Shown here is a 181-nucleotide sequence from Acidocella aromatica, a member of the family "Manganese Mn2+ riboswitch aptamer (yybP-ykoY)".
[Rfam]
RNA sequence: UCUGCCCUCAUUGGGGAGUAGCCCGCCCUCUUACGCGAGGGAGCGCACGUCAACAUACUCGGGCUUUUGCCUGUGGUGUGCGCGGUGUCCAAAAGCAGGAUGCUCGGCGAGACCAGCAAGCUUUUCAAUCCGCCCAGGGUCUGCGGGUUGCGGGGCUUUUGCUGUCUCACCUUUGCACCCU
Numbered sequence: 001u002c003u004g005c006c007c008u009c010a011u012u013g014g015g016g017a018g019u020a021g022c023c024c025g026c027c028c029u030c031u032u033a034c035g036c037g038a039g040g041g042a043g044c045g046c047a048c049g050u051c052a053a054c055a056u057a058c059u060c061g062g063g064c065u066u067u068u069g070c071c072u073g074u075g076g077u078g079u080g081c082g083c084g085g086u087g088u089c090c091a092a093a094a095g096c097a098g099g100a101u102g103c104u105c106g107g108c109g110a111g112a113c114c115a116g117c118a119a120g121c122u123u124u125u126c127a128a129u130c131c132g133c134c135c136a137g138g139g140u141c142u143g144c145g146g147g148u149u150g151c152g153g154g155g156c157u158u159u160u161g162c163u164g165u166c167u168c169a170c171c172u173u174u175g176c177a178c179c180c181u
Stems, first nucleotide, its partner, number of pairs: 026041003043083010060073005084181002087178002090175004
Its family is annotated with manganese ion binding in the Gene Ontology.
Lineage of the source: Bacteria > Pseudomonadati > Acetobacterales > Acidocellaceae > Acidocella.
Rfam describes the family as follows. This RNA was originally discovered in E. coli during a large scale screen and was named SraF. The family was later found to exist upstream of related families of protein genes in many bacteria, including the the yybP and ykoK genes in B. subtilis.